The record is a 132-nucleotide RNA sequence from Ovis aries, which matches "Small nucleolar RNA SNORA72" in Rfam. The match comes from Rfam's covariance-model search (116 bits). The family has 29 seed sequences and 1,541 matches in Rfam 15.1. Taxonomically the source falls in Ovis (Eukaryota, Vertebrata, Teleostomi, Amniota). Rfam's curators write: U72 is a member of the H/ACA class of snoRNAs. The snoRNA gene is located in intron 4 of the ribosomal L30 protein gene in human, mouse and chicken.
[Rfam]
RNA sequence: CUGUGAAUAUUCUCACGCUUCCAAUUUUGUAAUAGUUAGGGCAGGCUAAACAUUCACUAUAUUAAGACUAUGCUUGUGUCCCCAGACCUAGUUCUUUCCGUCAGUCUGGCUUUAUAAAUGCUGAUGAUAAAC
Numbered sequence: 001c002u003g004u005g006a007a008u009a010u011u012c013u014c015a016c017g018c019u020u021c022c023a024a025u026u027u028u029g030u031a032a033u034a035g036u037u038a039g040g041g042c043a044g045g046c047u048a049a050a051c052a053u054u055c056a057c058u059a060u061a062u063u064a065a066g067a068c069u070a071u072g073c074u075u076g077u078g079u080c081c082c083c084a085g086a087c088c089u090a091g092u093u094c095u096u097u098c099c100g101u102c103a104g105u106c107u108g109g110c111u112u113u114a115u116a117a118a119u120g121c122u123g124a125u126g127a128u129a130a131a132c
Stems, first nucleotide, its partner, number of pairs: 003057003016044001019041003023037004067125001069123002072121002082109006090101001